[Rfam]
RNA sequence: GCUUGGGCGGCACACGGUCAGCUCCUUCUGAAUCCCCCCAGGGCAGAAAUGCAGCAAGGGUAGGAGGUUGAGCGACUGGUGUGCUUGCCCAUUUUUU
Numbered sequence: 001g002c003u004u005g006g007g008c009g010g011c012a013c014a015c016g017g018u019c020a021g022c023u024c025c026u027u028c029u030g031a032a033u034c035c036c037c038c039c040a041g042g043g044c045a046g047a048a049a050u051g052c053a054g055c056a057a058g059g060g061u062a063g064g065a066g067g068u069u070g071a072g073c074g075a076c077u078g079g080u081g082u083g084c085u086u087g088c089c090c091a092u093u094u095u096u097u
Base pairs, nucleotide, nucleotide: 004091005090006089007088008087010084011083012082013081014080015079016076018075019074021073022072023071025067026066027065028064029063035060036059037058043052044051045050
The family of this 97-nucleotide RNA sequence from Neolewinella marina is "Bacterial small signal recognition particle RNA". From the family's description: The signal recognition particle (SRP) is a universally conserved ribonucleoprotein involved in the co-translational targeting of proteins to membranes. NCBI's taxonomy places the organism under Bacteria, Bacteroidota, Saprospiria, Lewinellaceae, Neolewinella. Rfam links the family to the GO terms SRP-dependent cotranslational protein targeting to membrane, signal sequence recognition and signal recognition particle, plasma membrane targeting. By type it is a non-coding RNA gene. Its Rfam clan is "SRP clan".